[Rfam]
The family of this 54-nucleotide RNA from Sulfitobacter noctilucicola is "COG3860 RNA". The match comes from Rfam's covariance-model search (45 bits). The base pairs follow the family's consensus structure, which is taken from published work.
RNA sequence: AGGUUGGCAAGCACCCAGGCGUCGCUGUUCCUCUAUGGAAAGCUAAAGCUGCCU
Number, nucleotide and partner (000 for none) at each position: 001a000002g015003g014004u013005u000006g000007g000008c000009a000010a000011g000012c000013a004014c003015c002016c000017a000018g000019g000020c000021g000022u000023c000024g000025c000026u000027g000028u040029u039030c038031c037032u000033c000034u000035a000036u000037g031038g030039a029040a028041a000042g000043c000044u000045a000046a000047a000048g000049c000050u000051g000052c000053c000054u000